[Rfam]
Shown here is a 139-nucleotide RNA sequence from Eubacterium sp. CAG:161, a member of the family "FMN riboswitch aptamer (RFN element)". NCBI's taxonomy places the organism under Bacteria, Bacillati, Bacillota, Eubacteriaceae, Eubacterium.
RNA sequence: AAAAUUCUUCGGGGCAGGGUGCAAUUCCCGAUCGGCGGUUACAGUCCGCGAGCGUUUUACGCAGGACUUGAUUUGGUUCAAGUCAGGAUAUGGUGAAAAUCCAUAACCGACAGUAUAGUCUGGAUGGUAGAAGAUUUAG
Numbered sequence: 001a002a003a004a005u006u007c008u009u010c011g012g013g014g015c016a017g018g019g020u021g022c023a024a025u026u027c028c029c030g031a032u033c034g035g036c037g038g039u040u041a042c043a044g045u046c047c048g049c050g051a052g053c054g055u056u057u058u059a060c061g062c063a064g065g066a067c068u069u070g071a072u073u074u075g076g077u078u079c080a081a082g083u084c085a086g087g088a089u090a091u092g093g094u095g096a097a098a099a100u101c102c103a104u105a106a107c108c109g110a111c112a113g114u115a116u117a118g119u120c121u122g123g124a125u126g127g128u129a130g131a132a133g134a135u136u137u138a139g
Stems, first nucleotide, its partner, number of pairs: 003137002006134005017029003031119002033109002035049004044107002054083004089105005111122003
Dot-bracket structure: ..((.(((((......(((.......))).[[((((((.....[[))))....((((......................)))).....(((((.......)))))]])).(((....]]))).......))))).))..